Notes: The record is a 59-nucleotide RNA from Microlunatus endophyticus, which matches "msiK RNA" in Rfam. Taxonomically the source falls in Microlunatus (Bacteria, Actinomycetota, Actinomycetes, Propionibacteriales). The match comes from Rfam's covariance-model search (57 bits). Pairs were carried over by alignment from the consensus structure, which is taken from published work.
[Rfam]
RNA sequence: CACAGUUUCUAUCCACUACGGAUCGUCGGGCACGUACCUGCCCGUGGAAGGAAGUGCGG
Numbered sequence: 001c002a003c004a005g006u007u008u009c010u011a012u013c014c015a016c017u018a019c020g021g022a023u024c025g026u027c028g029g030g031c032a033c034g035u036a037c038c039u040g041c042c043c044g045u046g047g048a049a050g051g052a053a054g055u056g057c058g059g
Base pairs, nucleotide, nucleotide: 009051010050012048013047014046015045027044028043029042030041031040032039